[Rfam]
RNA sequence: UAUCCGGCAACGGUGCCUGGGGAGGAAGCCGCCCUGCUGCGGCAGGGCAGUCGCGAAGGUACGGGGUGACGAACAGAAAUCGAGUCAGGCGCGCAUCUGUGGGACCAGCCUGCAACACAAGGUUAAGUCCUCUAUCCAUCUCAGGCAGUGCUCGUAUACUCGGCGCUUACGUACCGAAAGAUGUGUGU
Numbered sequence: 001u002a003u004c005c006g007g008c009a010a011c012g013g014u015g016c017c018u019g020g021g022g023a024g025g026a027a028g029c030c031g032c033c034c035u036g037c038u039g040c041g042g043c044a045g046g047g048c049a050g051u052c053g054c055g056a057a058g059g060u061a062c063g064g065g066g067u068g069a070c071g072a073a074c075a076g077a078a079a080u081c082g083a084g085u086c087a088g089g090c091g092c093g094c095a096u097c098u099g100u101g102g103g104a105c106c107a108g109c110c111u112g113c114a115a116c117a118c119a120a121g122g123u124u125a126a127g128u129c130c131u132c133u134a135u136c137c138a139u140c141u142c143a144g145g146c147a148g149u150g151c152u153c154g155u156a157u158a159c160u161c162g163g164c165g166c167u168u169a170c171g172u173a174c175c176g177a178a179a180g181a182u183g184u185g186u187g188u
Stems, first nucleotide, its partner, number of pairs: 004013003045188001047186003054180001058175006064168005080163005089155003093151003097148004102130004108123004
Group II catalytic intron D1-D4-3: a 188-nucleotide sequence from Desulfosarcina ovata. Group II introns are found in rRNA, tRNA and mRNA of organelles in fungi, plants and protists, and also in mRNA in bacteria. The pairing is the family consensus, mapped onto this sequence.